[Rfam]
RNA: skipping-rope RNA
RNA sequence: GAGUCAUGAGGUGGACAACAGCUUCCACGCACCCUUUGGGUUAAAAGAGAUGCGAGAACAGCUGGCCUCGCCAUGACUC
Numbered sequence: 001g002a003g004u005c006a007u008g009a010g011g012u013g014g015a016c017a018a019c020a021g022c023u024u025c026c027a028c029g030c031a032c033c034c035u036u037u038g039g040g041u042u043a044a045a046a047g048a049g050a051u052g053c054g055a056g057a058a059c060a061g062c063u064g065g066c067c068u069c070g071c072c073a074u075g076a077c078u079c
Stems, first nucleotide, its partner, number of pairs: 001079008011028005019064004030047001031041004052071005